[Rfam]
RNA sequence: UUAAUAAUAGGGCAUACUUACUGAAAGGUAAGGACGCAAAGCUAUGGGUCUAAGGGUGAAAUUACUAGAUUUCACCUAUGAUUGCCAGGUUGCAGAU
Numbered sequence: 001u002u003a004a005u006a007a008u009a010g011g012g013c014a015u016a017c018u019u020a021c022u023g024a025a026a027g028g029u030a031a032g033g034a035c036g037c038a039a040a041g042c043u044a045u046g047g048g049u050c051u052a053a054g055g056g057u058g059a060a061a062u063u064a065c066u067a068g069a070u071u072u073c074a075c076c077u078a079u080g081a082u083u084g085c086c087a088g089g090u091u092g093c094a095g096a097u
Base pairs, nucleotide, nucleotide: 012037013036017032018031019030020029021028022027040091041090042089043088045087046086047085048082049081050080055076056075057074058073059072060071061070062069063068

c-di-GMP-I riboswitch aptamer: a 97-nucleotide RNA from Priestia koreensis. The source organism's lineage runs through Bacteria, Bacillati, Caryophanales, Bacillaceae and Priestia.